[Rfam]
RNA sequence: CUGACGACGGCGCAUGGGUGGAGAUAGGUGUUGAGCGCCCUUUGCCCCUCAGAACCGCGAAGCGGUUUUCUGCUGGGCAGCGUCUGAACGUCAG
Dot-bracket structure: (((((...(((((..(((....(.(.(....).).).)))..((((((..(((((((.....)))))))..)..)))))))))).....)))))
L4-Archaeoglobi ribosomal protein leades: a 94-nucleotide sequence from Methanothrix harundinacea.
Rfam classes the family as a cis-regulatory leader.
Taxonomically the source falls in Methanothrix harundinacea (Archaea, Methanobacteriati, Methanotrichales, Methanothrix).
It is one of the family's seed sequences.